[Rfam]
RNA: ctgf/hcs24 CAESAR
RNA sequence: ACGGAGACAUGGCCUAAAGCCAGCGACUGAGAGACAGUAACUCCAUUAACUCAUAGUCUGUAACUUGAACACAUUCACAUCUCAUUUU
Numbered sequence: 001a002c003g004g005a006g007a008c009a010u011g012g013c014c015u016a017a018a019g020c021c022a023g024c025g026a027c028u029g030a031g032a033g034a035c036a037g038u039a040a041c042u043c044c045a046u047u048a049a050c051u052c053a054u055a056g057u058c059u060g061u062a063a064c065u066u067g068a069a070c071a072c073a074u075u076c077a078c079a080u081c082u083c084a085u086u087u088u
Base pairs, nucleotide, nucleotide: 004083005082006081007080010022011021012020013019028077029076030075